[Rfam]
RNA: Bacterial RNase P class B
Organism: Ammoniphilus sp. CFH 90114
RNA sequence: AAUGGUGAGUAGUUGCGGCUUAUGUGCAAGCAUAAGUUGAGGAAAGUCCAGGCUCGCCCGGAGCUGAGAUGCCCGGAGUGUUCGUGCCACUCGCAAGGGUGGGCAGUUAAUCUUCAUGGUUAGCUGACGGCGGUGAAAUCAUGCUAAGUUCUUCUUUGAGGGAUAUGCUGAGAGUAACCUGAAAGUGCCACAGUGACGAUUACUUUCUUGGAAACGAGAAAGGUGGAACGGGUAAACCCCACGAGCGAGCAACCCAAACUUACGGUAGGGGCACCGUCCUGCGGGAACAAUAGGAACCAAAGGGACGGAUCGGUUCAUCACGAAUCGAUAGUUAAAUGACUGCACCUGUAGUGCGAGAGUGGCAUCGCUUGAAGCACGCAGGAACAAAACCUGGCUUACAGCC
Numbered sequence: 001a002a003u004g005g006u007g008a009g010u011a012g013u014u015g016c017g018g019c020u021u022a023u024g025u026g027c028a029a030g031c032a033u034a035a036g037u038u039g040a041g042g043a044a045a046g047u048c049c050a051g052g053c054u055c056g057c058c059c060g061g062a063g064c065u066g067a068g069a070u071g072c073c074c075g076g077a078g079u080g081u082u083c084g085u086g087c088c089a090c091u092c093g094c095a096a097g098g099g100u101g102g103g104c105a106g107u108u109a110a111u112c113u114u115c116a117u118g119g120u121u122a123g124c125u126g127a128c129g130g131c132g133g134u135g136a137a138a139u140c141a142u143g144c145u146a147a148g149u150u151c152u153u154c155u156u157u158g159a160g161g162g163a164u165a166u167g168c169u170g171a172g173a174g175u176a177a178c179c180u181g182a183a184a185g186u187g188c189c190a191c192a193g194u195g196a197c198g199a200u201u202a203c204u205u206u207c208u209u210g211g212a213a214a215c216g217a218g219a220a221a222g223g224u225g226g227a228a229c230g231g232g233u234a235a236a237c238c239c240c241a242c243g244a245g246c247g248a249g250c251a252a253c254c255c256a257a258a259c260u261u262a263c264g265g266u267a268g269g270g271g272c273a274c275c276g277u278c279c280u281g282c283g284g285g286a287a288c289a290a291u292a293g294g295a296a297c298c299a300a301a302g303g304g305a306c307g308g309a310u311c312g313g314u315u316c317a318u319c320a321c322g323a324a325u326c327g328a329u330a331g332u333u334a335a336a337u338g339a340c341u342g343c344a345c346c347u348g349u350a351g352u353g354c355g356a357g358a359g360u361g362g363c364a365u366c367g368c369u370u371g372a373a374g375c376a377c378g379c380a381g382g383a384a385c386a387a388a389a390c391c392u393g394g395c396u397u398a399c400a401g402c403c
Stems, first nucleotide, its partner, number of pairs: 004403003007399001009343006016039008044397003048394005053249005058076004063072002082244005087102006103128001104126009129239002132179003140170002143168002148164007185237002187233003203222008253270003274308007309329008346382002351377004